[Rfam]
RNA: U11 spliceosomal RNA
RNA sequence: AAAAGGGGCUUGUGUCCUGAGUGACACACAUAGGGCACCUCAUUCUCUCUGCGCACGGAAUUGACAUCAAGAGAUUUCAGAAGCAUAAUUUUUGAUGUUUGGGCAGCUGGUGAUAGUUGGUUCUGGCGCCCUU
Numbered sequence: 001a002a003a004a005g006g007g008g009c010u011u012g013u014g015u016c017c018u019g020a021g022u023g024a025c026a027c028a029c030a031u032a033g034g035g036c037a038c039c040u041c042a043u044u045c046u047c048u049c050u051g052c053g054c055a056c057g058g059a060a061u062u063g064a065c066a067u068c069a070a071g072a073g074a075u076u077u078c079a080g081a082a083g084c085a086u087a088a089u090u091u092u093u094g095a096u097g098u099u100u101g102g103g104c105a106g107c108u109g110g111u112g113a114u115a116g117u118u119g120g121u122u123c124u125g126g127c128g129c130c131c132u133u
Stems, first nucleotide, its partner, number of pairs: 008084004013026004029053001031051005057078006101131004106127005112122003
Dot-bracket structure: .......((((.((((......))))..(.(((((...........))))).)...((((((..........))))))..))))................((((.(((((.(((.....))))))))))))..